c-di-GMP-I riboswitch aptamer: a 76-nucleotide sequence from Erysipelatoclostridium sp. AM42-17. Lineage of the source: Bacteria > Bacillati > Erysipelotrichia > Erysipelotrichales > Thomasclavelia.

RNA sequence: GUAAUAGAUAGGCAAAACUAUUGAAAAAUAGUGACGCAAAGCUAUAGGGGCUUUAAACUGCCAGCCAGCUGCACUC
Numbered sequence: 001g002u003a004a005u006a007g008a009u010a011g012g013c014a015a016a017a018c019u020a021u022u023g024a025a026a027a028a029u030a031g032u033g034a035c036g037c038a039a040a041g042c043u044a045u046a047g048g049g050g051c052u053u054u055a056a057a058c059u060g061c062c063a064g065c066c067a068g069c070u071g072c073a074c075u076c
Stems, first nucleotide, its partner, number of pairs: 012037002017032006040070004047066002049062003
Dot-bracket structure: ...........((...((((((....))))))...))..((((...(((((........)))..))))))......
Notes:
Pairs were carried over by alignment from the consensus structure, which is taken from published work.